This 103-nucleotide sequence from Morella rubra belongs to the Rfam family "MIR5225 microRNA precursor family". It scores 78 bits against the family's covariance model.
[Rfam]
RNA sequence: UGUAGGGACUCCUGUCGAAGGAGAGAUGGCGCCACCUUGUGCCAUGGUAGAACCCAAUUUGAACAGGAGGCUUCAUCUCUCUUCGACUGAAGCCCCUUCACUU
Numbered sequence: 001u002g003u004a005g006g007g008a009c010u011c012c013u014g015u016c017g018a019a020g021g022a023g024a025g026a027u028g029g030c031g032c033c034a035c036c037u038u039g040u041g042c043c044a045u046g047g048u049a050g051a052a053c054c055c056a057a058u059u060u061g062a063a064c065a066g067g068a069g070g071c072u073u074c075a076u077c078u079c080u081c082u083u084c085g086a087c088u089g090a091a092g093c094c095c096c097u098u099c100a101c102u103u
Stems, first nucleotide, its partner, number of pairs: 005095003009092002012089001014087004019083003023079007